This 88-nucleotide sequence from Arenibacter nanhaiticus belongs to the Rfam family "Flavo-1 RNA".
RNA sequence: CAGAAUCCCGCGUUAGGGAUUGCAGCGGCAUCCUUUUUUGGAGGGCCAGGGGCCUUUAAAAAAGAUAUAGCGGAAAGCGCGACCCGUU
Dot-bracket structure: ...............(.(.((...((...(((...((((((((..........))))))))..)))...))...)).).)........